[Rfam]
RNA sequence: UAUACGCCGACUGGAGAGCGGUGUGCACGUUGUUUAUCGGCGUGGCCACCCACCGAAGGGGCAAGCAGCGUGAGCUGCAUAAACUCUCAGGUAAAACGGACAGGGGGAGAGGC
Numbered sequence: 001u002a003u004a005c006g007c008c009g010a011c012u013g014g015a016g017a018g019c020g021g022u023g024u025g026c027a028c029g030u031u032g033u034u035u036a037u038c039g040g041c042g043u044g045g046c047c048a049c050c051c052a053c054c055g056a057a058g059g060g061g062c063a064a065g066c067a068g069c070g071u072g073a074g075c076u077g078c079a080u081a082a083a084c085u086c087u088c089a090g091g092u093a094a095a096a097c098g099g100a101c102a103g104g105g106g107g108a109g110a111g112g113c
Base pairs, nucleotide, nucleotide: 007107008106011103012102013101020050021049022048023047052092053091054090055088056087059086060085061084065078066077067076068075069074